[Rfam]
RNA sequence: UUCAUACCUUUGCUGAAUCUUAUGUUAAGAACGGGGGAACCAAUAUGGCAGGAGGCUGUUUGCGCCUGCCCGGGGUGAAUCCUGGCGGAGGCCGGGAAGGAAGCUCUCAAUUCCUAAUCCGGCAGCUAACUCCGUAAGCAUAUUGAGAGAAAGG
Numbered sequence: 001u002u003c004a005u006a007c008c009u010u011u012g013c014u015g016a017a018u019c020u021u022a023u024g025u026u027a028a029g030a031a032c033g034g035g036g037g038a039a040c041c042a043a044u045a046u047g048g049c050a051g052g053a054g055g056c057u058g059u060u061u062g063c064g065c066c067u068g069c070c071c072g073g074g075g076u077g078a079a080u081c082c083u084g085g086c087g088g089a090g091g092c093c094g095g096g097a098a099g100g101a102a103g104c105u106c107u108c109a110a111u112u113c114c115u116a117a118u119c120c121g122g123c124a125g126c127u128a129a130c131u132c133c134g135u136a137a138g139c140a141u142a143u144u145g146a147g148a149g150a151a152a153g154g
Stems, first nucleotide, its partner, number of pairs: 011140004018030003031135006041072001073120003081096004099114004
The family of this 154-nucleotide RNA sequence from Bacillus infantis is "c-di-AMP riboswitch aptamer (ydaO/yuaA leader)". A search with the family's covariance model found it, with a score of 82 bits. The pairing is the family consensus, mapped onto this sequence. Gene Ontology terms of the family: cyclic-di-AMP binding and regulation of gene expression.